[Rfam]
RNA sequence: UAAGCCAGAAGAGGCGCGUCGCUCAGGUAGAAUGUCUGAGGAACCGGGAUCCUAAGAAGUCAUUUAAGGGGAUGCGACGCCGAGGCAAUAUUCUGUCCGGAUAAGGAUAUUGUCGACCACAAGGGCUGAAUCCCUUGGGUUGUCACCAAUGUGACUCACAGACAUAUUGUGAGAAUCAGAGUUUAUCAAGUG
Numbered sequence: 001u002a003a004g005c006c007a008g009a010a011g012a013g014g015c016g017c018g019u020c021g022c023u024c025a026g027g028u029a030g031a032a033u034g035u036c037u038g039a040g041g042a043a044c045c046g047g048g049a050u051c052c053u054a055a056g057a058a059g060u061c062a063u064u065u066a067a068g069g070g071g072a073u074g075c076g077a078c079g080c081c082g083a084g085g086c087a088a089u090a091u092u093c094u095g096u097c098c099g100g101a102u103a104a105g106g107a108u109a110u111u112g113u114c115g116a117c118c119a120c121a122a123g124g125g126c127u128g129a130a131u132c133c134c135u136u137g138g139g140u141u142g143u144c145a146c147c148a149a150u151g152u153g154a155c156u157c158a159c160a161g162a163c164a165u166a167u168u169g170u171g172a173g174a175a176u177c178a179g180a181g182u183u184u185a186u187c188a189a190g191u192g
Stems, first nucleotide, its partner, number of pairs: 016080007030065005036059002084114011115141004120137006144192003
Dot-bracket structure: ...............(((((((.......(((((.((....................)).)))))........)))))))...(((((((((((.........)))))))))))((((.((((((......))))))))))..(((...........................................)))
RNA: Lysine riboswitch aptamer